[Rfam]
RNA sequence: UUAUUGCCGUAAGCGCCAGGACUGCGGCGGGCGGCCGCAGUUGACGAGGUGGAGGUUGAUCGAAUCAUCGGCGGAUGCCUCCCGGCCCGGCAUCGGGGCCGCGGAGCCGGAGCGGAAAAGAACGGGGCGACCCGUUUGACAACCCGCUCCGGCGCGAUGCCC
Number, nucleotide and partner (000 for none) at each position: 001u000002u000003a000004u000005u000006g000007c000008c000009g000010u000011a000012a000013g000014c000015g000016c000017c000018a000019g000020g042021a041022c040023u039024g038025c037026g036027g035028c033029g000030g000031g000032c000033g028034g000035c027036c026037g025038c024039a023040g022041u021042u020043g000044a000045c000046g000047a000048g000049g000050u000051g082052g081053a080054g079055g078056u000057u000058g000059a000060u071061c070062g069063a068064a000065u000066c000067a000068u063069c062070g061071g060072c000073g000074g000075a000076u000077g000078c055079c054080u053081c052082c051083c101084g100085g099086c098087c097088c096089g000090g000091c000092a000093u000094c000095g000096g088097g087098g086099c085100c084101g083102c000103g000104g000105a000106g000107c152108c151109g150110g149111a148112g147113c146114g000115g000116a000117a000118a000119a000120g137121a136122a135123c134124g133125g132126g131127g000128c000129g000130a000131c126132c125133c124134g123135u122136u121137u120138g000139a000140c000141a000142a000143c000144c000145c000146g113147c112148u111149c110150c109151g108152g107153c000154g000155c000156g000157a000158u000159g000160c000161c000162c000
glmS glucosamine-6-phosphate activated ribozyme aptamer: a 162-nucleotide sequence from Planifilum fulgidum. The base pairs follow the family's consensus structure, which is taken from published work. NCBI's taxonomy places the organism under Bacteria, Bacillota, Bacilli, Thermoactinomycetaceae, Planifilum. The family's RNA type in Rfam is riboswitch. This entry contains a glucosamine-6-phosphate activated ribozyme that is found in the mRNA for GlmS. GlmS is an enzyme that uses fructose-6-phosphate and glutamine to generate glucosamine-6-phosphate.